[Rfam]
RNA sequence: GUAUUCUUGCGCGCAUGAACCACAUCCUGUCCGAACUUCGACGUCGCCGCUCGCCGCUCCCCUAGGGGCGCGUGGCUUCGUUUAUGAAUUCGCGUCGGUGCAUCACACGCGGUUCGGAUCAUGAAAGCCACGGCACGCCGUGGCUUUUUU
Numbered sequence: 001g002u003a004u005u006c007u008u009g010c011g012c013g014c015a016u017g018a019a020c021c022a023c024a025u026c027c028u029g030u031c032c033g034a035a036c037u038u039c040g041a042c043g044u045c046g047c048c049g050c051u052c053g054c055c056g057c058u059c060c061c062c063u064a065g066g067g068g069c070g071c072g073u074g075g076c077u078u079c080g081u082u083u084a085u086g087a088a089u090u091c092g093c094g095u096c097g098g099u100g101c102a103u104c105a106c107a108c109g110c111g112g113u114u115c116g117g118a119u120c121a122u123g124a125a126a127g128c129c130a131c132g133g134c135a136c137g138c139c140g141u142g143g144c145u146u147u148u149u150u
Base pairs, nucleotide, nucleotide: 007117008116011095012094013093014092032086033085039080040079041078043076044075045074046073047072049071050070054066124147125146126145127144128143129142130141131140132139133138
Description: The record is a 150-nucleotide sequence from Paraburkholderia humisilvae, which matches "Burkholderia sRNA 7" in Rfam. The base pairs follow the family's consensus structure, which was predicted with R-scape. For this family Rfam cites "Identification of novel small RNAs in Burkholderia cenocepacia KC-01 expressed under iron limitation and oxidative stress conditions" (Ghosh et al., Microbiology, 2017). NCBI's taxonomy places the organism under Bacteria, Betaproteobacteria, Burkholderiales, Burkholderiaceae, Paraburkholderia. It scores 94 bits against the family's covariance model. Did not show any change in expression in iron-depletion and hydrogen peroxide (oxidative stress) treatment. Constitutively expressed. Possibly targets the GTPase, ObgE.